[Rfam]
RNA sequence: CCCGCGACAGGACGGAAAGACCCCAUGGAGCUUUACUGUAGCUUGAUAUUGAGUGUUUGUACCGCUUGUACAGGAUAGGUAGGAGCCGUAGAGACCGGAACGCUAGUUUCGGUGGAGGCGUUGGUGGGAUACUACCCUAGCUGUAUGAACACUCUAACCCGCACCACUUAGCGUGGUGGGAGACAGUGUCAGGUGGGCAGUUUGACUGGGGCGGUCGCCUCCUAAAGUGUAACGGAGGCGCCCAAAGGUUCCCUCAGAAUGGUUGGAAAUCAUUCGCAGAGUGUAAAGGUAUAAGGGAGCUUGACUGCGAGACUGACAAGUCGAGCAGGGACGAAAGUCGGGCUUAGUGAUCCGGUGGUUCCGCAUGGAAGGGCCAUCGCUCAACGGAUAAAAGCUACCCUGGGGAUAACAGGCUUAUCUCCCCCAAGAGUCCACAUCGACGGGGAGGUUUGGCACCUCGAUGUCGGCUCAUCGCAUCCUGGGGCUGUAGUCGGUCCCAAGGGUUGGGCUGUUCGCCCAUUAAAGCGGUACGCGAGCUGGGUUCAGAACGUCGUGAGACAGUUCGGUCCCUAUCCGUCGCGGGCGCA
Numbered sequence: 001c002c003c004g005c006g007a008c009a010g011g012a013c014g015g016a017a018a019g020a021c022c023c024c025a026u027g028g029a030g031c032u033u034u035a036c037u038g039u040a041g042c043u044u045g046a047u048a049u050u051g052a053g054u055g056u057u058u059g060u061a062c063c064g065c066u067u068g069u070a071c072a073g074g075a076u077a078g079g080u081a082g083g084a085g086c087c088g089u090a091g092a093g094a095c096c097g098g099a100a101c102g103c104u105a106g107u108u109u110c111g112g113u114g115g116a117g118g119c120g121u122u123g124g125u126g127g128g129a130u131a132c133u134a135c136c137c138u139a140g141c142u143g144u145a146u147g148a149a150c151a152c153u154c155u156a157a158c159c160c161g162c163a164c165c166a167c168u169u170a171g172c173g174u175g176g177u178g179g180g181a182g183a184c185a186g187u188g189u190c191a192g193g194u195g196g197g198c199a200g201u202u203u204g205a206c207u208g209g210g211g212c213g214g215u216c217g218c219c220u221c222c223u224a225a226a227g228u229g230u231a232a233c234g235g236a237g238g239c240g241c242c243c244a245a246a247g248g249u250u251c252c253c254u255c256a257g258a259a260u261g262g263u264u265g266g267a268a269a270u271c272a273u274u275c276g277c278a279g280a281g282u283g284u285a286a287a288g289g290u291a292u293a294a295g296g297g298a299g300c301u302u303g304a305c306u307g308c309g310a311g312a313c314u315g316a317c318a319a320g321u322c323g324a325g326c327a328g329g330g331a332c333g334a335a336a337g338u339c340g341g342g343c344u345u346a347g348u349g350a351u352c353c354g355g356u357g358g359u360u361c362c363g364c365a366u367g368g369a370a371g372g373g374c375c376a377u378c379g380c381u382c383a384a385c386g387g388a389u390a391a392a393a394g395c396u397a398c399c400c401u402g403g404g405g406a407u408a409a410c411a412g413g414c415u416u417a418u419c420u421c422c423c424c425c426a427a428g429a430g431u432c433c434a435c436a437u438c439g440a441c442g443g444g445g446a447g448g449u450u451u452g453g454c455a456c457c458u459c460g461a462u463g464u465c466g467g468c469u470c471a472u473c474g475c476a477u478c479c480u481g482g483g484g485c486u487g488u489a490g491u492c493g494g495u496c497c498c499a500a501g502g503g504u505u506g507g508g509c510u511g512u513u514c515g516c517c518c519a520u521u522a523a524a525g526c527g528g529u530a531c532g533c534g535a536g537c538u539g540g541g542u543u544c545a546g547a548a549c550g551u552c553g554u555g556a557g558a559c560a561g562u563u564c565g566g567u568c569c570c571u572a573u574c575c576g577u578c579g580c581g582g583g584c585g586c587a
Stems, first nucleotide, its partner, number of pairs: 001583008010575003014570002022404004027400002029396005035201004042193007051154012064141003068137001078136005085119003094113008159180002162178006204216004217239006240385001242342002248300006254280002257275006281290002305328004311322003330339003353379007361372002413454003417451001418448007428438002465540001466538004470532001471529005478503002481498006505519005546564004550559003
The record is a 587-nucleotide part of an RNA from Lacticaseibacillus brantae, which matches "Bacterial large subunit ribosomal RNA" in Rfam. NCBI's taxonomy places the organism under Bacteria, Bacillota, Bacilli, Lacticaseibacillus, Lacticaseibacillus brantae.